The record is a 114-nucleotide sequence from Streptococcus equi, which matches "Streptococcus sRNA 10" in Rfam. The literature on the family includes a 2013 paper in PLoS One by Tesorero et al., "Novel regulatory small RNAs in Streptococcus pyogenes". Taxonomically the source falls in Streptococcus equi (Bacteria, Bacillati, Lactobacillales, Streptococcus). The base pairs follow the family's consensus structure, which was predicted with RNAfold. It is annotated as a small RNA.

[Rfam]
RNA sequence: AUCAAGGGAGUAGCAGACGGUUAGCCGUGAUUGUGUCGUCAAUACGGAAUUUCGAUUUCCGGUACAAUCUGAAACAGCGAGACUUGUUUAAGAAAAAUAAACAGGUCUUUUUAG
Numbered sequence: 001a002u003c004a005a006g007g008g009a010g011u012a013g014c015a016g017a018c019g020g021u022u023a024g025c026c027g028u029g030a031u032u033g034u035g036u037c038g039u040c041a042a043u044a045c046g047g048a049a050u051u052u053c054g055a056u057u058u059c060c061g062g063u064a065c066a067a068u069c070u071g072a073a074a075c076a077g078c079g080a081g082a083c084u085u086g087u088u089u090a091a092g093a094a095a096a097a098u099a100a101a102c103a104g105g106u107c108u109u110u111u112u113a114g
Base pairs, nucleotide, nucleotide: 005028007026008025011023012022013021014020029069030068031067032066033065034064035063036062037061038060041058042057045054046053047052079109080108081107082106083105084104085103086102087101088100089099090098